[Rfam]
S4-Clostridia ribosomal protein leader: a 53-nucleotide RNA from Butyrivibrio sp. MB2005. The literature on the family includes a 2020 paper in BMC Microbiol by Eckert and Weinberg, "Discovery of 20 novel ribosomal leader candidates in bacteria and archaea". Rfam's curators put it in the seed alignment. Rfam classes the family as a cis-regulatory leader. Taxonomically the source falls in Butyrivibrio (Bacteria, Bacillati, Clostridia, Lachnospirales). Pairs were carried over by alignment from the consensus structure, which is taken from published work.
RNA sequence: GAAAGAUCGGAUUAACUUCUGUCCGAUUGGGCUGAUCAUUCGCCCCAAUCAAA
Numbered sequence: 001g002a003a004a005g006a007u008c009g010g011a012u013u014a015a016c017u018u019c020u021g022u023c024c025g026a027u028u029g030g031g032c033u034g035a036u037c038a039u040u041c042g043c044c045c046c047a048a049u050c051a052a053a
Base pairs, nucleotide, nucleotide: 005028006027007026008025009024010023011022012021029045030044031043032042